[Rfam]
A member of the RNA family "MIR2629 microRNA precursor family" from Medicago truncatula, 72 nucleotides long. The family's consensus secondary structure was predicted with RNAalifold. Its family is annotated with RISC complex and miRNA-mediated post-transcriptional gene silencing in the Gene Ontology.

RNA sequence: GUAGCAGAAGAUCCUCGACAGUUAACUGCAGCCGGUUUCUCCAAAAUUCGGCAGUUAACUCUCGAGGAGUAU
Numbered sequence: 001g002u003a004g005c006a007g008a009a010g011a012u013c014c015u016c017g018a019c020a021g022u023u024a025a026c027u028g029c030a031g032c033c034g035g036u037u038u039c040u041c042c043a044a045a046a047u048u049c050g051g052c053a054g055u056u057a058a059c060u061c062u063c064g065a066g067g068a069g070u071a072u
Base pairs, nucleotide, nucleotide: 012068013067015065016064017063018062020060021059022058023057024056025055026054027053028052029051